[Rfam]
RNA sequence: GGCCGGCUGGGGUUCCUGGGGAUGGGAUUUGAUGCCAGUCACAAAUCACAUUGCCAGGGAUUUCCAACUGACC
Numbered sequence: 001g002g003c004c005g006g007c008u009g010g011g012g013u014u015c016c017u018g019g020g021g022a023u024g025g026g027a028u029u030u031g032a033u034g035c036c037a038g039u040c041a042c043a044a045a046u047c048a049c050a051u052u053g054c055c056a057g058g059g060a061u062u063u064c065c066a067a068c069u070g071a072c073c
Base pairs, nucleotide, nucleotide: 001073002072004070005069006068010065011064012061013060014059015058016057017056018055019054021052022051023050024049026047027046028045029044030043
Dot-bracket structure: ((.(((...((((((((((.((((.(((((............))))).)))).))))))))..))..))).))